[Rfam]
RNA: MIR480 microRNA precursor family
RNA sequence: CAAUAUUUUUUGGCGAUUCUUUCUUAUUUAUGAAUAAGUUUACAUGCUCAAUACUAAUAAUUACGUACUCUCACAAGUCCAACUAUUGUAUGAAUAAGAUUACUGCGUAAUGACACUUCAAGGAUGAU
Number, nucleotide and partner (000 for none) at each position: 001c000002a000003a000004u126005a125006u124007u123008u121009u120010u000011u000012g117013g000014c000015g000016a111017u110018u000019c000020u000021u107022u000023c105024u000025u102026a101027u000028u099029u098030a000031u000032g000033a000034a000035u000036a000037a000038g000039u000040u000041u000042a000043c000044a000045u000046g000047c000048u000049c000050a000051a000052u000053a000054c000055u000056a000057a000058u000059a000060a000061u000062u000063a000064c000065g000066u000067a000068c000069u000070c000071u000072c000073a000074c000075a000076a000077g000078u000079c000080c000081a000082a000083c000084u000085a000086u000087u000088g000089u000090a000091u000092g000093a000094a000095u000096a000097a000098g029099a028100u000101u026102a025103c000104u000105g023106c000107g021108u000109a000110a017111u016112g000113a000114c000115a000116c000117u012118u000119c000120a009121a008122g000123g007124a006125u005126g004127a000128u000